[Rfam]
RNA sequence: CCGGCCGGGGAUCGCCCCCCGUCAGCGCGUCGCGCCCACGGGGGC
Numbered sequence: 001c002c003g004g005c006c007g008g009g010g011a012u013c014g015c016c017c018c019c020c021g022u023c024a025g026c027g028c029g030u031c032g033c034g035c036c037c038a039c040g041g042g043g044g045c
Stems, first nucleotide, its partner, number of pairs: 016044007025035004
Dot-bracket structure: ...............(((((((..((((...))))..))))))).

Description: The record is a 45-nucleotide sequence from Paracoccus sp. S-4012, which matches "ffh sRNA" in Rfam. A reference for the family is Meyer et al. (2009), "Identification of candidate structured RNAs in the marine organism 'Candidatus Pelagibacter ubique'", BMC Genomics. The source organism's lineage runs through Bacteria, Pseudomonadota, Alphaproteobacteria, Paracoccaceae and Paracoccus. The match comes from Rfam's covariance-model search (49 bits). The family's consensus secondary structure is taken from published work. By type it is a small RNA.